About this RNA: The record is a 78-nucleotide RNA from Drosophila virilis, which matches "mir-310 microRNA precursor family" in Rfam. The family is grouped with related families in Rfam's "mir-92 microRNA precursor clan". Rfam 15.1 lists 60 matches to the family in 29 species.
[Rfam]
RNA sequence: UAGUUUUUCGGCUGUGGUCAGUGUCAAUUCUUUUUUUUUAUUUUUACAAGUAUUGCACUUUUCACGGCCGGAAAAAUU
Numbered sequence: 001u002a003g004u005u006u007u008u009c010g011g012c013u014g015u016g017g018u019c020a021g022u023g024u025c026a027a028u029u030c031u032u033u034u035u036u037u038u039u040a041u042u043u044u045u046a047c048a049a050g051u052a053u054u055g056c057a058c059u060u061u062u063c064a065c066g067g068c069c070g071g072a073a074a075a076a077u078u
Base pairs, nucleotide, nucleotide: 002077004075005074006073007072010069011068013066014065016063017062020059021058023056025055026054027053028052030050031049

Its family is annotated with cellular response to nitric oxide, dorsal closure and RISC complex in the Gene Ontology.